[Rfam]
RNA sequence: AGGGUUGCGUGUGACUGGCGGAACAUGGGGAACCAUGAGGGAGCAUGCAAUGGUAACGGCCGUACGCCUGGGCAGAAGUA
Numbered sequence: 001a002g003g004g005u006u007g008c009g010u011g012u013g014a015c016u017g018g019c020g021g022a023a024c025a026u027g028g029g030g031a032a033c034c035a036u037g038a039g040g041g042a043g044c045a046u047g048c049a050a051u052g053g054u055a056a057c058g059g060c061c062g063u064a065c066g067c068c069u070g071g072g073c074a075g076a077a078g079u080a
Stems, first nucleotide, its partner, number of pairs: 004051009015040002017068004025036004057075001059073003